[Rfam]
RNA: Potassium channel RNA editing signal
Organism: Neogale vison
RNA sequence: CCCAGCUAUGGAGACAUGGUGCCCAGCACCAUUGCUGGCAAGAUUUUUGGAUCCAUCUGCUCCCUCAGCGGUGUCCUGGUCAUUGCACUGCCUGUGCCGGUCAUCGUGUCCAAC
Numbered sequence: 001c002c003c004a005g006c007u008a009u010g011g012a013g014a015c016a017u018g019g020u021g022c023c024c025a026g027c028a029c030c031a032u033u034g035c036u037g038g039c040a041a042g043a044u045u046u047u048u049g050g051a052u053c054c055a056u057c058u059g060c061u062c063c064c065u066c067a068g069c070g071g072u073g074u075c076c077u078g079g080u081c082a083u084u085g086c087a088c089u090g091c092c093u094g095u096g097c098c099g100g101u102c103a104u105c106g107u108g109u110c111c112a113a114c
Base pairs, nucleotide, nucleotide: 005110007108008107009106010105011104013102014101015100018097021095022094037077038076040074049063050062051061